[Rfam]
RNA: mir-460 microRNA precursor family
RNA sequence: CCGCGCUGCUCCUGCAUUGUACACACUGUGCGUAUAGGUACACAAGCACAGCGCAUACAAUGUGGAUGCCGCGCGG
Numbered sequence: 001c002c003g004c005g006c007u008g009c010u011c012c013u014g015c016a017u018u019g020u021a022c023a024c025a026c027u028g029u030g031c032g033u034a035u036a037g038g039u040a041c042a043c044a045a046g047c048a049c050a051g052c053g054c055a056u057a058c059a060a061u062g063u064g065g066a067u068g069c070c071g072c073g074c075g076g
Stems, first nucleotide, its partner, number of pairs: 012065002015062007024053001026051006